Rfam assigns this 587-nucleotide part of an RNA from Furfurilactobacillus rossiae to the family "Bacterial large subunit ribosomal RNA". The source organism's lineage runs through Bacteria, Bacillati, Bacillota, Lactobacillales and Furfurilactobacillus rossiae. A reference for the family is Yusupov et al. (2001), "Crystal structure of the ribosome at 5.5 A resolution", Science.

[Rfam]
RNA sequence: CCCGCGACAGGACGGAAAGACCCCAUGGAGCUUUACUGUAGCUUGAUAUUGGGUGUCUGUAUAACUUGUACAGGAUAGGUAGGAGCCGUAGAGCUCGGGACGCUAGUCUCGAAGGAGGCAAUCGUGGGAUACUACCCUUGUUAUACGGCCACUCUAACCCGCGCCACUUAGCGUGGCGGGAGACAGUGUCAGGUAGGCAGUUUGACUGGGGCGGUCGCCUCCUAAAAGGUAACGGAGGCGCCCAAAGGUUCCCUCAAAAUGGUUGGAAAUCAUUUGUAGAGUGUAAAGGCACAAGGGAGCUUGACUGUGAGACAGACAGGUCGAGCAGGGACGAAAGUCGGGCUUAGUGAUCCGGUGGUACCGUAUGGAAGGGCCAUCGCUCAACGGAUAAAAGCUACCCUGGGGAUAACAGGCUCAUCUCCCCCAAGAGUCCACAUCGACGGGGAGGUUUGGCACCUCGAUGUCGGCUCAUCGCAUCCUGGGGCUGUAGUCGGUCCCAAGGGUUGGGCUGUUCGCCCAUUAAAGCGGUACGCGAGCUGGGUUCAGAACGUCGUGAGACAGUUCGGUCCCUAUCCGUCGCGGGCGCA
Numbered sequence: 001c002c003c004g005c006g007a008c009a010g011g012a013c014g015g016a017a018a019g020a021c022c023c024c025a026u027g028g029a030g031c032u033u034u035a036c037u038g039u040a041g042c043u044u045g046a047u048a049u050u051g052g053g054u055g056u057c058u059g060u061a062u063a064a065c066u067u068g069u070a071c072a073g074g075a076u077a078g079g080u081a082g083g084a085g086c087c088g089u090a091g092a093g094c095u096c097g098g099g100a101c102g103c104u105a106g107u108c109u110c111g112a113a114g115g116a117g118g119c120a121a122u123c124g125u126g127g128g129a130u131a132c133u134a135c136c137c138u139u140g141u142u143a144u145a146c147g148g149c150c151a152c153u154c155u156a157a158c159c160c161g162c163g164c165c166a167c168u169u170a171g172c173g174u175g176g177c178g179g180g181a182g183a184c185a186g187u188g189u190c191a192g193g194u195a196g197g198c199a200g201u202u203u204g205a206c207u208g209g210g211g212c213g214g215u216c217g218c219c220u221c222c223u224a225a226a227a228g229g230u231a232a233c234g235g236a237g238g239c240g241c242c243c244a245a246a247g248g249u250u251c252c253c254u255c256a257a258a259a260u261g262g263u264u265g266g267a268a269a270u271c272a273u274u275u276g277u278a279g280a281g282u283g284u285a286a287a288g289g290c291a292c293a294a295g296g297g298a299g300c301u302u303g304a305c306u307g308u309g310a311g312a313c314a315g316a317c318a319g320g321u322c323g324a325g326c327a328g329g330g331a332c333g334a335a336a337g338u339c340g341g342g343c344u345u346a347g348u349g350a351u352c353c354g355g356u357g358g359u360a361c362c363g364u365a366u367g368g369a370a371g372g373g374c375c376a377u378c379g380c381u382c383a384a385c386g387g388a389u390a391a392a393a394g395c396u397a398c399c400c401u402g403g404g405g406a407u408a409a410c411a412g413g414c415u416c417a418u419c420u421c422c423c424c425c426a427a428g429a430g431u432c433c434a435c436a437u438c439g440a441c442g443g444g445g446a447g448g449u450u451u452g453g454c455a456c457c458u459c460g461a462u463g464u465c466g467g468c469u470c471a472u473c474g475c476a477u478c479c480u481g482g483g484g485c486u487g488u489a490g491u492c493g494g495u496c497c498c499a500a501g502g503g504u505u506g507g508g509c510u511g512u513u514c515g516c517c518c519a520u521u522a523a524a525g526c527g528g529u530a531c532g533c534g535a536g537c538u539g540g541g542u543u544c545a546g547a548a549c550g551u552c553g554u555g556a557g558a559c560a561g562u563u564c565g566g567u568c569c570c571u572a573u574c575c576g577u578c579g580c581g582g583g584c585g586c587a
Stems, first nucleotide, its partner, number of pairs: 001583008010575003014570002022404004027400002029396005035201004042193007051154005057148009068137001078136005085119003095112007159180002162178006204216004217239006240385001242342002248300006254280002257275006281290002305328004311322003330339003353379007361372002413454003417451001418448007428438002465540001466538004470532001471529005478503002481498006505519005546564004550559003